A member of the RNA family "Cyano-1 RNA" from Nostocales cyanobacterium HT-58-2, 77 nucleotides long.
NCBI's taxonomy places the organism under Bacteria, Bacillati, Cyanobacteriota, Cyanophyceae, Nostocales.
The family's RNA type in Rfam is small RNA.
[Rfam]
RNA sequence: UUGUGUGUGAGGAGCAAGUGUAAAGCAAAAAGCGCCUGGGGUGGAAACACGGUAACACUCCCAAGCGCUUUUUGUCA
Number, nucleotide and partner (000 for none) at each position: 001u000002u000003g000004u000005g000006u000007g000008u000009g000010a000011g000012g000013a000014g000015c074016a000017a000018g000019u000020g000021u000022a000023a000024a000025g000026c000027a073028a072029a071030a070031a000032g000033c067034g066035c000036c000037u000038g062039g061040g060041g058042u057043g056044g000045a000046a000047a000048c000049a000050c000051g000052g000053u000054a000055a000056c043057a042058c041059u000060c040061c039062c038063a000064a000065g000066c034067g033068c000069u000070u030071u029072u028073u027074g015075u000076c000077a000